[Rfam]
RNA sequence: AGCUCGGAGUUUCUCUUCAUUCUUCACGCAAAUCUUUGCGCCUUUUACUAAAGAUUUCCGUGGAGGGGAGCUUUGCGGAAGUGACCUGUAUUUUGGGGCUCUGCUCACAGCAGAGCU
Dot-bracket structure: ...(((..(((((((((((..........((((((((............))))))))...)))))))))))....))).................(.((((((.......)))))))
Numbered sequence: 001a002g003c004u005c006g007g008a009g010u011u012u013c014u015c016u017u018c019a020u021u022c023u024u025c026a027c028g029c030a031a032a033u034c035u036u037u038g039c040g041c042c043u044u045u046u047a048c049u050a051a052a053g054a055u056u057u058c059c060g061u062g063g064a065g066g067g068g069a070g071c072u073u074u075g076c077g078g079a080a081g082u083g084a085c086c087u088g089u090a091u092u093u094u095g096g097g098g099c100u101c102u103g104c105u106c107a108c109a110g111c112a113g114a115g116c117u
Stems, first nucleotide, its partner, number of pairs: 004078003009071011030057008096117001098116006

Annotation: This 117-nucleotide RNA from Cyprinus carpio belongs to the Rfam family "U5 spliceosomal RNA". Rfam's curators write: U5 RNA is a component of both types of known spliceosome. The family's consensus secondary structure is taken from published work.